[Rfam]
RNA sequence: AGUACAUAAAUUAGACACCAUAGCAGAAGUGCUUAUGGUGUGGCCUGUCAGAUUCCAGUGAAUCUGUGCAUUGUGCU
Dot-bracket structure: .............[...[[..((((.(((((.......)))]]]....(((((((....)))))))....)).))))

The record is a 77-nucleotide sequence from Crocodylus porosus, which matches "Mammalian CPEB3 ribozyme" in Rfam. The organism belongs to Crocodylus, within Eukaryota. A reference for the family is Salehi-Ashtiani et al. (2006), "A genomewide search for ribozymes reveals an HDV-like sequence in the human CPEB3 gene", Science.